[Rfam]
RNA sequence: GCGCCAACUUUAGCUCUGUAGUUACUUCGAUUUCACUCAAAUCCUUCUAGUUGCGUAUUCGCGGCUCGCUAACUACGGGCGCUGCCCGGCGUUUAA
Numbered sequence: 001g002c003g004c005c006a007a008c009u010u011u012a013g014c015u016c017u018g019u020a021g022u023u024a025c026u027u028c029g030a031u032u033u034c035a036c037u038c039a040a041a042u043c044c045u046u047c048u049a050g051u052u053g054c055g056u057a058u059u060c061g062c063g064g065c066u067c068g069c070u071a072a073c074u075a076c077g078g079g080c081g082c083u084g085c086c087c088g089g090c091g092u093u094u095a096a
Base pairs, nucleotide, nucleotide: 002091003090004089005088013080014079015078016077018076019075020074021073028068029067030066
Rfam assigns this 96-nucleotide RNA sequence from Chiloscyllium punctatum to the family "Vault RNA". It is annotated as a non-coding RNA gene. For this family Rfam cites "Evolution of Vault RNAs" (Stadler et al., Mol Biol Evol, 2009). The family has 73 seed sequences and 2,873 matches in Rfam 15.1. The family's consensus secondary structure is taken from published work.